RNA sequence: CUCUUAUCCAGAGUGGCGGAGGGACUGGCCCAAUGAAGCCCGGCAACCUGUUGGUUAUUCCAAUGUGGUGCUAAUUCCUGUCAGAGAGUGUUCUCUCUGAAAGAUGAGAG
Numbered sequence: 001c002u003c004u005u006a007u008c009c010a011g012a013g014u015g016g017c018g019g020a021g022g023g024a025c026u027g028g029c030c031c032a033a034u035g036a037a038g039c040c041c042g043g044c045a046a047c048c049u050g051u052u053g054g055u056u057a058u059u060c061c062a063a064u065g066u067g068g069u070g071c072u073a074a075u076u077c078c079u080g081u082c083a084g085a086g087a088g089u090g091u092u093c094u095c096u097c098u099g100a101a102a103g104a105u106g107a108g109a110g
Stems, first nucleotide, its partner, number of pairs: 001110008013041001015040003021031003025080001027078002042072004047068002050064004076102001082099006
Record summary
The record is a 110-nucleotide sequence from Laceyella tengchongensis, which matches "SAM riboswitch aptamer (S box leader)" in Rfam. The source organism's lineage runs through Bacteria, Bacillota, Bacilli, Caryophanales and Laceyella.